The record is a 60-nucleotide sequence, which matches "S4-Clostridia ribosomal protein leader" in Rfam. Rfam classes the family as a cis-regulatory leader. The family's consensus secondary structure is taken from published work.
[Rfam]
RNA sequence: GAAAGGCCGCGUACAUUCGCCGUCGUCGCGGCUGGGUGUUACCGAGGCACCCCAAUUAGG
Numbered sequence: 001g002a003a004a005g006g007c008c009g010c011g012u013a014c015a016u017u018c019g020c021c022g023u024c025g026u027c028g029c030g031g032c033u034g035g036g037u038g039u040u041a042c043c044g045a046g047g048c049a050c051c052c053c054a055a056u057u058a059g060g
Stems, first nucleotide, its partner, number of pairs: 005033007034052007